RNA sequence: AGGUGUGGAUGAUGACAACACAAGUAAAAUACAGUUAUCCCUGUCUUAUUCCUUCAAAAGGGUGCUUAGAAUACUUAAAUCUGACACGUUG
Numbered sequence: 001a002g003g004u005g006u007g008g009a010u011g012a013u014g015a016c017a018a019c020a021c022a023a024g025u026a027a028a029a030u031a032c033a034g035u036u037a038u039c040c041c042u043g044u045c046u047u048a049u050u051c052c053u054u055c056a057a058a059a060g061g062g063u064g065c066u067u068a069g070a071a072u073a074c075u076u077a078a079a080u081c082u083g084a085c086a087c088g089u090u091g
Stems, first nucleotide, its partner, number of pairs: 002090006